[Rfam]
RNA sequence: GCGGGAUUAAGCAGACUCCCGGCGAGACUUCGGUCCAAGCUCUGC
Numbered sequence: 001g002c003g004g005g006a007u008u009a010a011g012c013a014g015a016c017u018c019c020c021g022g023c024g025a026g027a028c029u030u031c032g033g034u035c036c037a038a039g040c041u042c043u044g045c
Stems, first nucleotide, its partner, number of pairs: 002021005011045005026035003
The record is a 45-nucleotide RNA sequence from Bradyrhizobium sp. WSM471, which matches "chrB-b RNA" in Rfam.
The family's consensus secondary structure is taken from published work.